[Rfam]
Rfam assigns this 173-nucleotide RNA to the family "Group II catalytic intron D1-D4-3". Group II introns are found in rRNA, tRNA and mRNA of organelles in fungi, plants and protists, and also in mRNA in bacteria. Pairs were carried over by alignment from the consensus structure. It is one of the family's seed sequences.
RNA sequence: UCCAUCGUGAGGUGGAAUCUGAAGGAAGCCUGCGGCAAAUAUCUGGUCUGACGUACAGAAACUUGAUAUUAAGGCUUAAGGAUGUGGAUAAGUUUGCUAAACAAAACGAAGUCCUAUAGUUGUCCGGAACAUCCAAAGUAAAUCAAGCAGACAUAAGAUGGAAAGAAUAUGUC
Numbered sequence: 001u002c003c004a005u006c007g008u009g010a011g012g013u014g015g016a017a018u019c020u021g022a023a024g025g026a027a028g029c030c031u032g033c034g035g036c037a038a039a040u041a042u043c044u045g046g047u048c049u050g051a052c053g054u055a056c057a058g059a060a061a062c063u064u065g066a067u068a069u070u071a072a073g074g075c076u077u078a079a080g081g082a083u084g085u086g087g088a089u090a091a092g093u094u095u096g097c098u099a100a101a102c103a104a105a106a107c108g109a110a111g112u113c114c115u116a117u118a119g120u121u122g123u124c125c126g127g128a129a130c131a132u133c134c135a136a137a138g139u140a141a142a143u144c145a146a147g148c149a150g151a152c153a154u155a156a157g158a159u160g161g162a163a164a165g166a167a168u169a170u171g172u173c
Stems, first nucleotide, its partner, number of pairs: 001016006028173001030171001036165001040160005046152005062147006074139003080134006086114004092107004